Source information:
A member of the RNA family "mir-8364 microRNA precursor family" from Pristionchus pacificus, 61 nucleotides long. The family has 13 seed sequences and 3,320 matches in Rfam 15.1.

Nucleotides: 061
Base pairs, nucleotide, nucleotide: 001059002058003057004056006054007053010050012048013047014046015045016044017043019041020040021039022038
Number, partner (000 for none) and nucleotide at each position: 001059u002058c003057u004056u005000c006054a007053u008000u009000u010050c011000g012048c013047a014046c015045a016044c017043u018000c019041u020040c021039u022038c023000g024000u025000c026000u027000c028000u029000c030000u031000g032000a033000c034000u035000g036000g037000a038022g039021a040020g041019a042000a043017a044016g045015u046014g047013u048012g049000g050010g051000a052000a053007a054006u055000u056004a057003a058002g059001a060000g061000a

A search with the family's covariance model found it, with a score of 69 bits.